[Rfam]
RNA: glmS glucosamine-6-phosphate activated ribozyme aptamer
Organism: Heliorestis acidaminivorans
RNA sequence: AGUGAAGAGAUAGCGCCAGAACCGCAGGCAGAUCUGCUCCACCAUUACGGGGCUUUUUAUAUGUCAUAAGCGGUUGACGAGGAAGGGGUUUAUCGAAGUUUUCGGCGGAUGCCCCUCGGCUACUCAUAGUCGAUAACAAGACUACAAAGCUUGCAAGUAAUUGCAAGGACAAAAAGUCUUGUAGUGAGUGUC
Number, nucleotide and partner (000 for none) at each position: 001a000002g000003u000004g000005a000006a000007g000008a000009g000010a000011u000012a000013g000014c000015g000016c000017c000018a000019g000020a075021a074022c073023c072024g071025c070026a000027g000028g000029c000030a000031g000032a000033u000034c000035u000036g000037c000038u000039c000040c000041a000042c000043c000044a000045u000046u000047a000048c000049g000050g000051g000052g000053c000054u000055u000056u000057u000058u000059a000060u000061a000062u000063g000064u000065c000066a000067u000068a000069a000070g025071c024072g023073g022074u021075u020076g000077a000078c000079g000080a000081g000082g000083a000084a116085g115086g114087g113088g112089u000090u000091u000092a000093u105094c104095g103096a102097a000098g000099u000100u000101u000102u096103c095104g094105g093106c000107g000108g000109a000110u000111g000112c088113c087114c086115c085116u084117c132118g131119g130120c129121u128122a127123c000124u000125c000126a000127u122128a121129g120130u119131c118132g117133a000134u000135a000136a182137c181138a180139a179140g178141a177142c176143u000144a000145c000146a000147a000148a000149g000150c167151u166152u165153g164154c163155a162156a161157g000158u000159a000160a000161u156162u155163g154164c153165a152166a151167g150168g000169a000170c000171a000172a000173a000174a000175a000176g142177u141178c140179u139180u138181g137182u136183a000184g000185u000186g000187a000188g000189u000190g000191u000192c000